The record is an 88-nucleotide sequence from Paeniglutamicibacter gangotriensis, which matches "ZMP/ZTP riboswitch aptamer (pfl RNA motif)" in Rfam. NCBI's taxonomy places the organism under Bacteria, Bacillati, Actinomycetota, Paeniglutamicibacter, Paeniglutamicibacter gangotriensis. The base pairs follow the family's consensus structure, which is taken from published work.
RNA sequence: GGAUGGUGUCGCAACUGGCGUUGGGUGGGAUGAACCACCGGGGAGCGGCACAUGAGCUAACCACGGACCGCGCGCCUGGGUCCGGGGG
Dot-bracket structure: .....(((((((..(([[[[[...((((......))))..))..))))))).............(((((..]]]]]..))))).....